The family of this 116-nucleotide RNA from Hibiscus trionum is "MIR1520 microRNA precursor family".

RNA sequence: CUCUAAUUGGGUGUGACACGUGUCACAACUUGAUUGGAGGUGGAAGAUUAAUUAAUUAAAUUAAUAAAAAUGAUUAAAGACUUCCAAUAAGGUGGUGACACGUGUCACCAUCUUAU
Numbered sequence: 001c002u003c004u005a006a007u008u009g010g011g012u013g014u015g016a017c018a019c020g021u022g023u024c025a026c027a028a029c030u031u032g033a034u035u036g037g038a039g040g041u042g043g044a045a046g047a048u049u050a051a052u053u054a055a056u057u058a059a060a061u062u063a064a065u066a067a068a069a070a071u072g073a074u075u076a077a078a079g080a081c082u083u084c085c086a087a088u089a090a091g092g093u094g095g096u097g098a099c100a101c102g103u104g105u106c107a108c109c110a111u112c113u114u115a116u
Base pairs, nucleotide, nucleotide: 015106016105017104018103020101021100024097025096026095028093029092030091031090033088034087035086

Notes:
The family is grouped with related families in Rfam's "MIR1520 microRNA precursor clan".